The record is a 148-nucleotide RNA sequence from Gloeocapsa sp. PCC 7428, which matches "Guanidine-I riboswitch aptamer" in Rfam.

RNA sequence: UUUAAUUGCCUCUAGGGUUCCGAUUCAAAUCAUCCACGAUGUUGACUUAGUCAAUUGAAUGUCUGGUCCAAGAGAGGCAGGCUAGUGCGCCAACACAAGUUGAACUAGAAAUUUGCUAGCCACACGGCGGGAGAAAAACCCGGGAGGA
Numbered sequence: 001u002u003u004a005a006u007u008g009c010c011u012c013u014a015g016g017g018u019u020c021c022g023a024u025u026c027a028a029a030u031c032a033u034c035c036a037c038g039a040u041g042u043u044g045a046c047u048u049a050g051u052c053a054a055u056u057g058a059a060u061g062u063c064u065g066g067u068c069c070a071a072g073a074g075a076g077g078c079a080g081g082c083u084a085g086u087g088c089g090c091c092a093a094c095a096c097a098a099g100u101u102g103a104a105c106u107a108g109a110a111a112u113u114u115g116c117u118a119g120c121c122a123c124a125c126g127g128c129g130g131g132a133g134a135a136a137a138a139c140c141c142g143g144g145a146g147g148a
Base pairs, nucleotide, nucleotide: 007079008078009077010076011075012074015069016068020066021065022063023060024059025058026057027056028055080121081120082119083118084117085116086115087114123143125146129141130140131139

A reference for the family is Battaglia et al. (2017), "Structural basis for guanidine sensing by the ykkC family of riboswitches", RNA.
The organism belongs to Gloeocapsa, within Bacteria.